[Rfam]
Record summary
This 113-nucleotide RNA sequence from Capsicum baccatum belongs to the Rfam family "Plastid-psbA-1 3UTR RNA". Rfam classes the family as a cis-regulatory element. The match comes from Rfam's covariance-model search (90 bits). Lineage of the source: Eukaryota > Viridiplantae > Spermatophyta > asterids > Capsicum. Plastid psbA-1 is a non-coding RNA (ncRNA) present in plastids.
RNA sequence: UAGAAGCUUCAUCUACAAAUGGAUAAGAUCCUAGUCUAGUCUAUAUGAGGUUUUGAAAACAAAGGAGAAAUAAUCAUUUUCUUGUUCUAUCAAGAGGGUGCUAUUGCUUCUUC
Numbered sequence: 001u002a003g004a005a006g007c008u009u010c011a012u013c014u015a016c017a018a019a020u021g022g023a024u025a026a027g028a029u030c031c032u033a034g035u036c037u038a039g040u041c042u043a044u045a046u047g048a049g050g051u052u053u054u055g056a057a058a059a060c061a062a063a064g065g066a067g068a069a070a071u072a073a074u075c076a077u078u079u080u081c082u083u084g085u086u087c088u089a090u091c092a093a094g095a096g097g098g099u100g101c102u103a104u105u106g107c108u109u110c111u112u113c
Stems, first nucleotide, its partner, number of pairs: 008023005062112006069105004075100003079096005